[Rfam]
RNA sequence: UGCUGUGAUGGUGUAAUUUGCGUCUGACUCUGUGAUCAGUGACGGUUGCCUGCUGUCUAAUGCUGGCACAGAGGAUUGAAGACAUCCAAGACUGAGCA
Numbered sequence: 001u002g003c004u005g006u007g008a009u010g011g012u013g014u015a016a017u018u019u020g021c022g023u024c025u026g027a028c029u030c031u032g033u034g035a036u037c038a039g040u041g042a043c044g045g046u047u048g049c050c051u052g053c054u055g056u057c058u059a060a061u062g063c064u065g066g067c068a069c070a071g072a073g074g075a076u077u078g079a080a081g082a083c084a085u086c087c088a089a090g091a092c093u094g095a096g097c098a
Base pairs, nucleotide, nucleotide: 001098002097003096021081023079024078030071031070032069033068034067039063040062041057042056043055044054045053
Shown here is a 98-nucleotide RNA sequence from Clarias magur, a member of the family "Small nucleolar RNA SNORD16". The source organism's lineage runs through Eukaryota, Euteleostomi, Osteoglossocephalai, Otomorpha and Clarias. Its family is annotated with RNA processing and nucleolus in the Gene Ontology. Pairs were carried over by alignment from the consensus structure, which was predicted with PFOLD.